[Rfam]
RNA: ZMP/ZTP riboswitch aptamer (pfl RNA motif)
RNA sequence: AAAGGUUUUGAUUACUGACGGAUAGUUGUGGAGUACCACAGGGAAAUCAAAAUUAUAUGAUAAGGUCGACCGUCUGGGCAGCAUUU
Numbered sequence: 001a002a003a004g005g006u007u008u009u010g011a012u013u014a015c016u017g018a019c020g021g022a023u024a025g026u027u028g029u030g031g032a033g034u035a036c037c038a039c040a041g042g043g044a045a046a047u048c049a050a051a052a053u054u055a056u057a058u059g060a061u062a063a064g065g066u067c068g069a070c071c072g073u074c075u076g077g078g079c080a081g082c083a084u085u086u
Stems, first nucleotide, its partner, number of pairs: 004054009015043002017074005028039004065079003